[Rfam]
RNA sequence: CGCUGGUCAAUGCGGUUACCCCCUUGUUGGGAUAUCGGAAUACUGGUGAUGA
Numbered sequence: 001c002g003c004u005g006g007u008c009a010a011u012g013c014g015g016u017u018a019c020c021c022c023c024u025u026g027u028u029g030g031g032a033u034a035u036c037g038g039a040a041u042a043c044u045g046g047u048g049a050u051g052a
Stems, first nucleotide, its partner, number of pairs: 002047006013037004020031003

Source information: Transposase-1 RNA: a 52-nucleotide RNA from Lactobacillus delbrueckii. It is annotated as a small RNA. Lineage of the source: Bacteria > Bacillota > Lactobacillaceae > Lactobacillus delbrueckii > Lactobacillus delbrueckii subsp. bulgaricus.